RNA sequence: AUGUACUGCUUUCUCUUUUAAUUUAGGCAAAAGAAAUCCUUUGCCUUUUACUAAAGAUUUCCAUGGAGAGGCAUAACUAUUAACUAUGAGAUUAAUUUUAUGAGGCUUAGUUCAUAUCAGUCU
Numbered sequence: 001a002u003g004u005a006c007u008g009c010u011u012u013c014u015c016u017u018u019u020a021a022u023u024u025a026g027g028c029a030a031a032a033g034a035a036a037u038c039c040u041u042u043g044c045c046u047u048u049u050a051c052u053a054a055a056g057a058u059u060u061c062c063a064u065g066g067a068g069a070g071g072c073a074u075a076a077c078u079a080u081u082a083a084c085u086a087u088g089a090g091a092u093u094a095a096u097u098u099u100a101u102g103a104g105g106c107u108u109a110g111u112u113c114a115u116a117u118c119a120g121u122c123u
Base pairs, nucleotide, nucleotide: 003084004083010073012071013070014069015068016067017066018065034060035059036058037057038056040054041053102123104122105121106120107119109117
This 123-nucleotide RNA sequence from Xenopus laevis belongs to the Rfam family "U5 spliceosomal RNA". It is annotated as a spliceosomal small nuclear RNA. It scores 42 bits against the family's covariance model. NCBI's taxonomy places the organism under Eukaryota, Bilateria, Chordata, Vertebrata, Xenopus. Pairs were carried over by alignment from the consensus structure, which is taken from published work. U5 RNA is a component of both types of known spliceosome.